[Rfam]
RNA sequence: ACCGCCAUGGAUGGCGGUUACUAUAGCAGAAGCGAUAUUUUGCCGUGGCAAAAUUCGCCAUCAAGCAAUAUACAAGGAGGUAUAUUGCUUGAUGAUG
Numbered sequence: 001a002c003c004g005c006c007a008u009g010g011a012u013g014g015c016g017g018u019u020a021c022u023a024u025a026g027c028a029g030a031a032g033c034g035a036u037a038u039u040u041u042g043c044c045g046u047g048g049c050a051a052a053a054u055u056c057g058c059c060a061u062c063a064a065g066c067a068a069u070a071u072a073c074a075a076g077g078a079g080g081u082a083u084a085u086u087g088c089u090u091g092a093u094g095a096u097g
Stems, first nucleotide, its partner, number of pairs: 001018006033057003037054007060093014
RNA: TD-2 RNA
Organism: Treponema vincentii